RNA: Small nucleolar RNA U6-53/MBII-28
Organism: Kryptolebias marmoratus
RNA sequence: CUCCUGUGAUGAUCCAGCCAUGCUAAUACCGAUGCAUCAGGCAGAUGUACUUCGUCUGCCUGGAUGUAAGUGAGUUCAACUCACCUUCUUACUGACGGCGUCAGUGUGUGCUGAGGAGA
Numbered sequence: 001c002u003c004c005u006g007u008g009a010u011g012a013u014c015c016a017g018c019c020a021u022g023c024u025a026a027u028a029c030c031g032a033u034g035c036a037u038c039a040g041g042c043a044g045a046u047g048u049a050c051u052u053c054g055u056c057u058g059c060c061u062g063g064a065u066g067u068a069a070g071u072g073a074g075u076u077c078a079a080c081u082c083a084c085c086u087u088c089u090u091a092c093u094g095a096c097g098g099c100g101u102c103a104g105u106g107u108g109u110g111c112u113g114a115g116g117a118g119a
Stems, first nucleotide, its partner, number of pairs: 001118004042058005